[Rfam]
RNA sequence: UAGCGACUGGCGCCAUCGAGGUGGAGCACCACCGGGGAGCGAAACAGGGCCGGCACCGCGCGCCUGGGUGCCCGCG
Number, nucleotide and partner (000 for none) at each position: 001u042002a000003g040004c039005g000006a000007c036008u035009g064010g063011c062012g061013c060014c000015a000016u000017c000018g000019a000020g000021g032022u031023g030024g029025a000026g000027c000028a000029c024030c023031a022032c021033c000034g000035g008036g007037g000038a000039g004040c003041g000042a001043a000044a000045c000046a000047g000048g000049g000050c000051c000052g000053g071054c070055a069056c068057c067058g000059c000060g013061c012062g011063c010064c009065u000066g000067g057068g056069u055070g054071c053072c000073c000074g000075c000076g000
RNA: ZMP/ZTP riboswitch aptamer (pfl RNA motif)